[Rfam]
RNA sequence: UGAUACCAAGAGUUUCAAAGUCAUGCUUUUUCAUGCUUGCAUGGAAAAGCAUGACCUUGAAACUCGCAACAGCAUGAAAAGGAAGCCCGCCAGGGCGGACUUAGAAUGCUGUUAGGAUUGCGUGAGCGCAAAGCGCGGAGCAACUUACACA
Numbered sequence: 001u002g003a004u005a006c007c008a009a010g011a012g013u014u015u016c017a018a019a020g021u022c023a024u025g026c027u028u029u030u031u032c033a034u035g036c037u038u039g040c041a042u043g044g045a046a047a048a049g050c051a052u053g054a055c056c057u058u059g060a061a062a063c064u065c066g067c068a069a070c071a072g073c074a075u076g077a078a079a080a081g082g083a084a085g086c087c088c089g090c091c092a093g094g095g096c097g098g099a100c101u102u103a104g105a106a107u108g109c110u111g112u113u114a115g116g117a118u119u120g121c122g123u124g125a126g127c128g129c130a131a132a133g134c135g136c137g138g139a140g141c142a143a144c145u146u147a148c149a150c151a
Base pairs, nucleotide, nucleotide: 011064012063013062014061017058018057020055021054022053023052024051025050026049028047029046031044032043033042034041035040068113069112070111071110072109073108074107075106079102080101081100085096086095087094088093115146116145118143119142120141121140126136127135128134129133